Overview:
Selenocysteine insertion sequence 1: a 60-nucleotide RNA from Mytilus coruscus. From the family's description: The incorporation of selenocysteine into a protein sequence is directed by an in-frame UGA codon (usually a stop codon) within the coding region of the mRNA. Selenoprotein mRNAs contain a conserved secondary structure in the 3' UTR that is required for the distinction of UGA stop from UGA selenocysteine. The selenocysteine insertion sequence (SECIS) is around 60 nt in length and adopts a hairpin structure which is sufficiently well-defined and conserved to act as a computational screen for selenoprotein genes.

RNA sequence: CAUAUUUUAUGAUGGUAUAAUACUAAUCCCCCCGGGGGUGUUGUACUUGAUAUUCAUAUG
Numbered sequence: 001c002a003u004a005u006u007u008u009a010u011g012a013u014g015g016u017a018u019a020a021u022a023c024u025a026a027u028c029c030c031c032c033c034g035g036g037g038g039u040g041u042u043g044u045a046c047u048u049g050a051u052a053u054u055c056a057u058a059u060g
Stems, first nucleotide, its partner, number of pairs: 001060005014047010028037003
The match comes from Rfam's covariance-model search (37 bits).